[Rfam]
RNA sequence: AGAAUUCCGUCGGGAUCUACCUCCUCCCAGUGAACGACGGAUAGGCCGGCACCCACCUCCUCCCGGGUGUCCGCCACACAAACGACACCCGCCGGACCUCCUCCCCCGGCGGGUGUUGUUU
Number, nucleotide and partner (000 for none) at each position: 001a000002g000003a000004a000005u000006u000007c040008c039009g038010u000011c036012g035013g000014g000015a000016u000017c030018u000019a000020c000021c000022u000023c000024c000025u000026c000027c000028c000029a000030g017031u000032g000033a000034a000035c012036g011037a000038c009039g008040g007041a000042u000043a000044g075045g074046c073047c000048g071049g070050c069051a068052c067053c066054c000055a000056c000057c000058u000059c000060c000061u000062c000063c000064c000065g000066g053067g052068u051069g050070u049071c048072c000073g046074c045075c044076a000077c000078a000079c000080a000081a000082a000083c000084g000085a116086c115087a114088c113089c112090c111091g110092c109093c108094g107095g106096a000097c000098c000099u000100c000101c000102u000103c000104c000105c000106c095107c094108g093109g092110c091111g090112g089113g088114u087115g086116u085117u000118g000119u000120u000121u000
A member of the RNA family "Alphaproteobacterial ar14" from Aquibium oceanicum, 121 nucleotides long. For this family Rfam cites "A conserved alpha-proteobacterial small RNA contributes to osmoadaptation and symbiotic efficiency of rhizobia on legume roots" (Robledo et al., Environ Microbiol, 2017). Rfam classes the family as a small RNA. Smr14C2 was renamed NfeR1 (Nodule Formation Efficiency RNA) highly expressed in salt stress and during the symbiotic interaction on legume roots. The base pairs follow the family's consensus structure.